[Rfam]
Y RNA: a 98-nucleotide sequence from Pteropus vampyrus. Pairs were carried over by alignment from the consensus structure, which is taken from published work. Rfam describes the family as follows. Y RNAs are components of the Ro ribonucleoprotein particle (Ro RNP), in association with Ro60 and La proteins. The Y RNAs and Ro60 and La proteins are well conserved, but the function of the Ro RNP is not known. In humans the RNA component can be one of four small RNAs -- hY1, hY3, hY4 and hY5. These small RNAs are predicted to fold into a conserved secondary structure containing three stem structures. The match comes from Rfam's covariance-model search (54 bits). NCBI's taxonomy places the organism under Eukaryota, Craniata, Chiroptera, Pteropodoidea, Pteropus. The family's RNA type in Rfam is non-coding RNA gene.
RNA sequence: GGCUGGGCCGAGUGCAGUGGUGUCUACAAUUAAUUGAUCACAAGUUACAUAUUUCUCUGUUCCUCCUCCACUCCCACUGCUUCACUUGACUAGUAAAA
Numbered sequence: 001g002g003c004u005g006g007g008c009c010g011a012g013u014g015c016a017g018u019g020g021u022g023u024c025u026a027c028a029a030u031u032a033a034u035u036g037a038u039c040a041c042a043a044g045u046u047a048c049a050u051a052u053u054u055c056u057c058u059g060u061u062c063c064u065c066c067u068c069c070a071c072u073c074c075c076a077c078u079g080c081u082u083c084a085c086u087u088g089a090c091u092a093g094u095a096a097a098a
Base pairs, nucleotide, nucleotide: 002094003093004092005091006090008088010087011086014083016078017077018076019075020074022073028061029060030059033056